Shown here is a 258-nucleotide part of an RNA from Methanothrix soehngenii, a member of the family "Archaeal large subunit ribosomal RNA".
RNA sequence: GAGUGCAUAUUGGCGGCGAGGCUAAUUCUUUAACAGAGGAAGCCGUAGCGAAAGCGACAAGCGCGCAUGAGAAGAGGCGCGACGUAUACAAGUGCGUGCAGUCGUCCGUAUGCGACCCGAAGCCGGGCGAUCUAGGCGUAGGUAGGUCGAAGCGUGGCGAAAGCUGCGUGGAGGACCGUUUGAGGUGUUGAUAUGCAAAUCGCUCUCGUGACCCGCGUCUAGGGGUGAAAGUCCAAUCGAGGUCGGAAAUAGCUGGUU
Numbered sequence: 001g002a003g004u005g006c007a008u009a010u011u012g013g014c015g016g017c018g019a020g021g022c023u024a025a026u027u028c029u030u031u032a033a034c035a036g037a038g039g040a041a042g043c044c045g046u047a048g049c050g051a052a053a054g055c056g057a058c059a060a061g062c063g064c065g066c067a068u069g070a071g072a073a074g075a076g077g078c079g080c081g082a083c084g085u086a087u088a089c090a091a092g093u094g095c096g097u098g099c100a101g102u103c104g105u106c107c108g109u110a111u112g113c114g115a116c117c118c119g120a121a122g123c124c125g126g127g128c129g130a131u132c133u134a135g136g137c138g139u140a141g142g143u144a145g146g147u148c149g150a151a152g153c154g155u156g157g158c159g160a161a162a163g164c165u166g167c168g169u170g171g172a173g174g175a176c177c178g179u180u181u182g183a184g185g186u187g188u189u190g191a192u193a194u195g196c197a198a199a200u201c202g203c204u205c206u207c208g209u210g211a212c213c214c215g216c217g218u219c220u221a222g223g224g225g226u227g228a229a230a231g232u233c234c235a236a237u238c239g240a241g242g243u244c245g246g247a248a249a250u251a252g253c254u255g256g257u258u
Base pairs, nucleotide, nucleotide: 005113006112007111008110009109010108012106013105014104015103016102017101020044021043022042023041026038027037028036029035048055049054061080062079063078064077068073083096084095085094086093116256117255119253123246124245125244126243128241132222133221134220135219136218137217138216139215141213142212143210145177146176147175148174152169153168154167155166156165157164158163182207183206184205185204187203188202190201191200224234225233
Dot-bracket structure: ....((((((.((((((..((((..((((.....))))..))))...((....)).....((((...(....)...))))..((((......))))....)))))).))))))..((.(...((((.(...((((((((.(((.((((...(((((((....)))))))....))))....((((.((.((........))))))))..).)).)))))))).((.......))......).))))......).))..